[Rfam]
RNA sequence: GUAUAUCUUCAGGGCAGGGUGUUAUUCCCGACCGGCGGUAAAGCCCGAGAGCCUUUGGCGCAUCCGCGCCAGGGGUUGACCAGGUUUAUUUCCUGGGCCGACAGUGACAGUCUGGAUAAAAAGAAGAUAACC
Numbered sequence: 001g002u003a004u005a006u007c008u009u010c011a012g013g014g015c016a017g018g019g020u021g022u023u024a025u026u027c028c029c030g031a032c033c034g035g036c037g038g039u040a041a042a043g044c045c046c047g048a049g050a051g052c053c054u055u056u057g058g059c060g061c062a063u064c065c066g067c068g069c070c071a072g073g074g075g076u077u078g079a080c081c082a083g084g085u086u087u088a089u090u091u092c093c094u095g096g097g098c099c100g101a102c103a104g105u106g107a108c109a110g111u112c113u114g115g116a117u118a119a120a121a122a123g124a125a126g127a128u129a130a131c132c
Base pairs, nucleotide, nucleotide: 004129005128006127007126008125009124010123017029018028019027031111032110033100034099036047037046038045043098044097051076052075053074054073055072080096081095082094083093084092102114103113104112
This 132-nucleotide sequence from Luoshenia tenuis belongs to the Rfam family "FMN riboswitch aptamer (RFN element)". A search with the family's covariance model found it, with a score of 91 bits. The RFN element is a highly conserved domain that is found frequently in the 5'-untranslated regions of prokaryotic mRNAs that encode for flavin mononucleotide (FMN) biosynthesis and transport proteins.